[Rfam]
RNA sequence: GACAGUGUCGCAAUAGUAAUUCAACCUAGUACGAGAGGAACUAUUGAUUCGCACAAUUGGUCAUCGCGCUUGGUUGAAAAGCCAGUGGCGCGAAGCUACCAUGCGUUGGAUUAUGACUGAACGCCUCUAGUUAGAAUCCAGGCUAGAAGUGACGCAUACGCCCGCCGCCCGAUUGCCGACCCUCAGUAGGGGCCAUCCGGCCCCUAGAAGCAAGUGUCCUUGGUCAAGGCCACGUGGGCCGCCUUGAAGUAUCAUUUUGACCUAGCGACGGGUAGAAUCCUUUGCAAACGACUUAAAUACGUGACGGGGUAUUAUAAGUGGUAGAGUGGCCUUGCUGCCAAGAUCCACUAAGAUUCAGCCCUAUGUCGUUCCGAUUCGU
Numbered sequence: 001g002a003c004a005g006u007g008u009c010g011c012a013a014u015a016g017u018a019a020u021u022c023a024a025c026c027u028a029g030u031a032c033g034a035g036a037g038g039a040a041c042u043a044u045u046g047a048u049u050c051g052c053a054c055a056a057u058u059g060g061u062c063a064u065c066g067c068g069c070u071u072g073g074u075u076g077a078a079a080a081g082c083c084a085g086u087g088g089c090g091c092g093a094a095g096c097u098a099c100c101a102u103g104c105g106u107u108g109g110a111u112u113a114u115g116a117c118u119g120a121a122c123g124c125c126u127c128u129a130g131u132u133a134g135a136a137u138c139c140a141g142g143c144u145a146g147a148a149g150u151g152a153c154g155c156a157u158a159c160g161c162c163c164g165c166c167g168c169c170c171g172a173u174u175g176c177c178g179a180c181c182c183u184c185a186g187u188a189g190g191g192g193c194c195a196u197c198c199g200g201c202c203c204c205u206a207g208a209a210g211c212a213a214g215u216g217u218c219c220u221u222g223g224u225c226a227a228g229g230c231c232a233c234g235u236g237g238g239c240c241g242c243c244u245u246g247a248a249g250u251a252u253c254a255u256u257u258u259g260a261c262c263u264a265g266c267g268a269c270g271g272g273u274a275g276a277a278u279c280c281u282u283u284g285c286a287a288a289c290g291a292c293u294u295a296a297a298u299a300c301g302u303g304a305c306g307g308g309g310u311a312u313u314a315u316a317a318g319u320g321g322u323a324g325a326g327u328g329g330c331c332u333u334g335c336u337g338c339c340a341a342g343a344u345c346c347a348c349u350a351a352g353a354u355u356c357a358g359c360c361c362u363a364u365g366u367c368g369u370u371c372c373g374a375u376u377c378g379u
Base pairs, nucleotide, nucleotide: 005155006154007153008152009151010150011149014145015144016143017142019049021047022046023045024044050105051104052103053102058098059097060096065092066091067090068089069088070085071084072083073082074081075080107140108139109138114133115132116131117130118129162271163270164269166267167266168265275377276376277375278374279373281295284292301369302368303367304366305365306364307361308360309359311354312353318348319347320346321345323344327340328339329338330337

Description:
This 379-nucleotide part of an RNA from Vitis vinifera belongs to the Rfam family "Eukaryotic large subunit ribosomal RNA". A search with the family's covariance model found it, with a score of 2529 bits. A reference for the family is Cannone et al. (2002), "The comparative RNA web (CRW) site: an online database of comparative sequence and structure information for ribosomal, intron, and other RNAs", BMC Bioinformatics. The family's consensus secondary structure is taken from published work. NCBI's taxonomy places the organism under Eukaryota, Embryophyta, Magnoliopsida, rosids, Vitis.